[Rfam]
A member of the RNA family "Small Cajal body specific RNA 15" from Macaca mulatta, 127 nucleotides long. Clan: SCARNA4 clan. Gene Ontology terms of the family: RNA processing, Cajal body and nucleolus. Rfam 15.1 lists 635 matches to the family in 528 species. Taxonomically the source falls in Macaca (Eukaryota, Vertebrata, Mammalia, Catarrhini). scaRNAs are a specific class of small nuclear RNAs which localise to the Cajal bodies and guide the modification of RNA polymerase II transcribed spliceosomal RNAs U1, U2, U4, U5 and U12. ACA45 belongs to the H/ACA box class of guide RNAs as it has the predicted hairpin-hinge-hairpin-tail structure, the conserved H/ACA-box motifs and is found associated with GAR1. ACA45 is predicted to guide the pseudouridylation of residue U37 of the U2 spliceosomal snRNA.
RNA sequence: CUGGAGACUAAGAAAACAGAGUCCUUGAAGUCAAGCUGACUCUGAUUUUGGCCUCCUAAAUGAAAAGAUAAAUAGAACAGGUCUUGUUUACAAAAUAAAUUCAAGACCUACUUAUCUAUCAACAGCA
Numbered sequence: 001c002u003g004g005a006g007a008c009u010a011a012g013a014a015a016a017c018a019g020a021g022u023c024c025u026u027g028a029a030g031u032c033a034a035g036c037u038g039a040c041u042c043u044g045a046u047u048u049u050g051g052c053c054u055c056c057u058a059a060a061u062g063a064a065a066a067g068a069u070a071a072a073u074a075g076a077a078c079a080g081g082u083c084u085u086g087u088u089u090a091c092a093a094a095a096u097a098a099a100u101u102c103a104a105g106a107c108c109u110a111c112u113u114a115u116c117u118a119u120c121a122a123c124a125g126c127a
Base pairs, nucleotide, nucleotide: 003056004055005054006053008051009050010049011048017044018043019042020041021040022039023038024035025034026033027032067120068119069118070117072115073114074113079109080108081107082106083105084104085103086102
The sequence is in the family's curated seed alignment.